[Rfam]
Rfam assigns this 68-nucleotide RNA from Centropus unirufus to the family "Small nucleolar RNA SNORD42". From the family's description: snoRNA U42 is found in intron 3 of the ribosomal protein L23a (RPL23a) gene in humans and is also present in mice.

RNA sequence: GUGCAAGUGAUGUAAAAUGUUUUCUAUCCCUGAGUAAAGUGAUGUUUCCAAAGGAACCACUGAUGCAC
Numbered sequence: 001g002u003g004c005a006a007g008u009g010a011u012g013u014a015a016a017a018u019g020u021u022u023u024c025u026a027u028c029c030c031u032g033a034g035u036a037a038a039g040u041g042a043u044g045u046u047u048c049c050a051a052a053g054g055a056a057c058c059a060c061u062g063a064u065g066c067a068c
Stems, first nucleotide, its partner, number of pairs: 001068005
Its family is annotated with RNA processing and nucleolus in the Gene Ontology.